[Rfam]
RNA: MIR2655 microRNA precursor family
RNA sequence: CCCUUAUCUUGUAAAAGUUUCAAGUUGGUCCCUUAUCUUUAUUUUAUGUUUCAAGUUGGUCCCUUCCGUCAAUUUUUUAACUAUUUCCGUUAAAUUUGGACACGUGGCAAACUAAUUUUUACACGUGGCAUUCUUGGACAGAUGACACGUGUCCAAAUUUACCGGUAACAGUAAAAAAAUUGACGGAAGGGACCAGCUUGAAACCUAAAAUAAAGAUACGGGACUAACUUGAAACUUUUAAAAGAUAAGGGA
Numbered sequence: 001c002c003c004u005u006a007u008c009u010u011g012u013a014a015a016a017g018u019u020u021c022a023a024g025u026u027g028g029u030c031c032c033u034u035a036u037c038u039u040u041a042u043u044u045u046a047u048g049u050u051u052c053a054a055g056u057u058g059g060u061c062c063c064u065u066c067c068g069u070c071a072a073u074u075u076u077u078u079a080a081c082u083a084u085u086u087c088c089g090u091u092a093a094a095u096u097u098g099g100a101c102a103c104g105u106g107g108c109a110a111a112c113u114a115a116u117u118u119u120u121a122c123a124c125g126u127g128g129c130a131u132u133c134u135u136g137g138a139c140a141g142a143u144g145a146c147a148c149g150u151g152u153c154c155a156a157a158u159u160u161a162c163c164g165g166u167a168a169c170a171g172u173a174a175a176a177a178a179a180u181u182g183a184c185g186g187a188a189g190g191g192a193c194c195a196g197c198u199u200g201a202a203a204c205c206u207a208a209a210a211u212a213a214a215g216a217u218a219c220g221g222g223a224c225u226a227a228c229u230u231g232a233a234a235c236u237u238u239u240a241a242a243a244g245a246u247a248a249g250g251g252a
Stems, first nucleotide, its partner, number of pairs: 002250007023229003027225003031221002034218010045207002